Shown here is a 118-nucleotide sequence from Tenebrionibacter intestinalis, a member of the family "Ribosomal S15 leader". It scores 98 bits against the family's covariance model. Lineage of the source: Bacteria > Pseudomonadati > Gammaproteobacteria > Enterobacteriaceae > Tenebrionibacter. The literature on the family includes a 1996 paper in Biochimie by Benard et al., "Pseudoknot and translational control in the expression of the S15 ribosomal protein". Rfam links the family to the GO term regulation of translation, ncRNA-mediated. From the family's description: The E. coli Ribosomal S15 gene 5' UTR can form two alternative structures.
RNA sequence: UAGGGUGGCUGAAUUAGAGAUCGGCGCCCUGUCUUUCUGUCUGUAAAACUGGAGUUAAAAAAUGUCUCUAAGCGUUGAAGCUAAAGCUAAAAUUGUUGCUGAGUUUGGCCGUGGUACU
Dot-bracket structure: .......(((((........)))))........................(((((...........)))))................................................